[Rfam]
RNA sequence: AUACCACGCGUCCACUGCGGUUCUGAGCGCGCUGUCCGCGCUCACCUGACGGUUGUUCGCUACGUUUUGUUAGCC
Numbered sequence: 001a002u003a004c005c006a007c008g009c010g011u012c013c014a015c016u017g018c019g020g021u022u023c024u025g026a027g028c029g030c031g032c033u034g035u036c037c038g039c040g041c042u043c044a045c046c047u048g049a050c051g052g053u054u055g056u057u058c059g060c061u062a063c064g065u066u067u068u069g070u071u072a073g074c075c
Stems, first nucleotide, its partner, number of pairs: 003011002018034004023029001046073007
Rfam assigns this 75-nucleotide RNA sequence from Xanthomonas oryzae to the family "Xanthomonas sRNA sX9". Rfam 15.1 lists 309 matches to the family in 52 species. For this family Rfam cites "Genome-wide transcriptome analysis of the plant pathogen Xanthomonas identifies sRNAs with putative virulence functions" (Schmidtke et al., Nucleic Acids Res, 2011). The source organism's lineage runs through Bacteria, Lysobacteraceae, Xanthomonas, Xanthomonas oryzae and Xanthomonas oryzae pv. oryzae. The family's consensus secondary structure was predicted with RNAalifold. By type it is a small RNA.